[Rfam]
RNA sequence: CAUCUGUUACGGCGCAGCGCGCGCGUAACGCAAAACCGGGGUGGACGGUAACGUUUCCCCG
Number, nucleotide and partner (000 for none) at each position: 001c000002a000003u000004c000005u030006g029007u028008u027009a026010c025011g000012g024013c023014g022015c021016a000017g000018c000019g000020c000021g015022c014023g013024c012025g010026u009027a008028a007029c006030g005031c000032a000033a000034a000035a000036c000037c061038g060039g059040g058041g057042u000043g055044g000045a054046c053047g052048g000049u000050a000051a000052c047053g046054u045055u043056u000057c041058c040059c039060c038061g037